[Rfam]
RNA sequence: AAAUGGUUGGAUUCCUUCUAAAUUAGAGGCAAUUUACAUUAAUUGAAAUUGGCUUGACCCUACUGCACUAACCGAACUAGAUAACGGUGCAGUAGGGGUAAAUUCUCCGCAUUCGGUGCGG
Number, nucleotide and partner (000 for none) at each position: 001a000002a000003a000004u000005g000006g000007u000008u000009g000010g000011a000012u000013u000014c000015c000016u000017u000018c000019u000020a000021a000022a000023u000024u057025a000026g055027a054028g053029g000030c051031a050032a049033u048034u047035u046036a000037c000038a043039u000040u000041a000042a000043u038044u000045g000046a035047a034048a033049u032050u031051g030052g000053c028054u027055u026056g000057a024058c097059c096060c095061u094062a093063c092064u091065g090066c089067a088068c087069u086070a000071a117072c116073c115074g114075a113076a112077c000078u000079a000080g000081a000082u000083a000084a000085c000086g069087g068088u067089g066090c065091a064092g063093u062094a061095g060096g059097g058098g000099u000100a000101a000102a000103u000104u000105c000106u000107c121108c120109g119110c118111a000112u076113u075114c074115g073116g072117u071118g110119c109120g108121g107
The family of this 121-nucleotide sequence from Enterovirus betacoxsackie is "Enteroviral 3' UTR element".
Gene Ontology term of the family: RNA replication.
Rfam describes the family as follows. This RNA structure is found in the 3' UTR of various enteroviruses. The overall structure forms the origin of replication (OriR) for the initiation of (-) strand RNA synthesis.
Pairs were carried over by alignment from the consensus structure, which was predicted with PFOLD.
Lineage of the source: Viruses > Pisoniviricetes > Ensavirinae > Enterovirus betacoxsackie > Enterovirus B.
The family's RNA type in Rfam is cis-regulatory element.